[Rfam]
6S / SsrS RNA: a 187-nucleotide RNA sequence from Liquorilactobacillus ghanensis. It scores 53 bits against the family's covariance model.
RNA sequence: ACAAAUCUGAGAUGUACGCGUUAUCUCACAACGUAAGGUUGACCGAACAACUAUAUAAUUGGUCUUUGGGAUGAAUUAUUAAUAGCACGCCUUAUUACAAGGAAACUAGCGGUAAUUCUAUCAAGGACCCCCUGCUUGUCAGCGGGUUCAACUACAGAGAUGAUUAACGGCAUCAUGCGGAUUAUAC
Number, nucleotide and partner (000 for none) at each position: 001a000002c000003a000004a183005a182006u181007c180008u179009g178010a000011g176012a173013u172014g171015u170016a000017c169018g168019c000020g000021u000022u000023a000024u000025c000026u000027c000028a000029c000030a000031a000032c000033g000034u000035a000036a000037g153038g152039u000040u150041g149042a148043c146044c145045g000046a000047a000048c000049a000050a000051c000052u000053a000054u000055a000056u000057a000058a000059u000060u000061g129062g128063u127064c000065u125066u124067u123068g122069g121070g000071a000072u000073g118074a117075a116076u115077u114078a113079u112080u000081a000082a000083u000084a000085g106086c000087a000088c000089g000090c102091c101092u100093u099094a000095u000096u000097a000098c000099a093100a092101g091102g090103a000104a000105a000106c085107u000108a000109g000110c000111g000112g079113u078114a077115a076116u075117u074118c073119u000120a000121u069122c068123a067124a066125g065126g000127a063128c062129c061130c000131c000132c000133u000134g000135c000136u000137u000138g000139u000140c000141a000142g000143c000144g000145g044146g043147u000148u042149c041150a040151a000152c038153u037154a000155c000156a000157g000158a000159g000160a000161u000162g000163a000164u000165u000166a000167a000168c018169g017170g015171c014172a013173u012174c000175a000176u011177g000178c009179g008180g007181a006182u005183u004184a000185u000186a000187c000
Overview:
The family's RNA type in Rfam is non-coding RNA gene.